[Rfam]
RNA sequence: GAGUGUAUCGGUACGGCGAUGGCUAACCUCAAAGGGUAGCCGAAGCGAAAGCAACAUGCACGCAGUCCUUAACCGGACCAGGUGCGACGUAUACAAGUGCGUGGAGUCGUAACGGUACGACCCGAAGCCGGGCGAUCUAGGCGUGGGCAGGUUGAAGCGUGGCGAAAGCUACGUGGAGGACCGCAAGCGGUAUUGAUCUGCAAAUCAUUCGUGUGACCUGCGUCUUGGAGUGAAAGGCUAAUCUAGCCCGGCAUCAGCUGGUU
Numbered sequence: 001g002a003g004u005g006u007a008u009c010g011g012u013a014c015g016g017c018g019a020u021g022g023c024u025a026a027c028c029u030c031a032a033a034g035g036g037u038a039g040c041c042g043a044a045g046c047g048a049a050a051g052c053a054a055c056a057u058g059c060a061c062g063c064a065g066u067c068c069u070u071a072a073c074c075g076g077a078c079c080a081g082g083u084g085c086g087a088c089g090u091a092u093a094c095a096a097g098u099g100c101g102u103g104g105a106g107u108c109g110u111a112a113c114g115g116u117a118c119g120a121c122c123c124g125a126a127g128c129c130g131g132g133c134g135a136u137c138u139a140g141g142c143g144u145g146g147g148c149a150g151g152u153u154g155a156a157g158c159g160u161g162g163c164g165a166a167a168g169c170u171a172c173g174u175g176g177a178g179g180a181c182c183g184c185a186a187g188c189g190g191u192a193u194u195g196a197u198c199u200g201c202a203a204a205u206c207a208u209u210c211g212u213g214u215g216a217c218c219u220g221c222g223u224c225u226u227g228g229a230g231u232g233a234a235a236g237g238c239u240a241a242u243c244u245a246g247c248c249c250g251g252c253a254u255c256a257g258c259u260g261g262u263u
Base pairs, nucleotide, nucleotide: 005118006117007116008115009114010113012111013110014109015108016107017106021041022040023039024038027035028034045052046051058085059084060083061082065078066077067076068075088101089100090099091098121261122260124258128251129250130249131248132247133246137227139225140224141223142222143221144220145219146218147217148215150182151181152180153179157174158173159172160171161170162169163168187212188211189210190209192208193207195206196205229239230238231237
The record is a 263-nucleotide part of an RNA from Methanosalsum zhilinae, which matches "Archaeal large subunit ribosomal RNA" in Rfam. Rfam's curators put it in the seed alignment. NCBI's taxonomy places the organism under Archaea, Methanobacteriati, Methanomicrobia, Methanosalsum, Methanosalsum zhilinae. The base pairs follow the family's consensus structure, which is taken from published work. Gene Ontology terms of the family: ribosome and structural constituent of ribosome.